[Rfam]
The record is a 184-nucleotide sequence from Rhodococcus sp. EPR-157, which matches "c-di-AMP riboswitch aptamer (ydaO/yuaA leader)" in Rfam.
Gene Ontology terms of the family: regulation of gene expression and cyclic-di-AMP binding.
Taxonomically the source falls in Rhodococcus (Bacteria, Actinomycetes, Mycobacteriales, Nocardiaceae).

RNA sequence: CCCACAAGAACACCCAGGGGACGAGGACGGGGGACCCACACGUCCUCUCGGAUAACCGGAAAGCUGUGCGAGAGCACAACUUUCCUUGGGGUGAAGCCCAACAUUUCCUUCGGGAAAGUUGGGCCGGGCUACCUCUCAGCCCGAACCCGACAGCUGACCUCGCAGGCGCCAGUGGAGAGGAUUU
Dot-bracket structure: ((......................)).(((((....((................................................))(((.....((((((...............))))))..((((.........))))...))).........)))))......................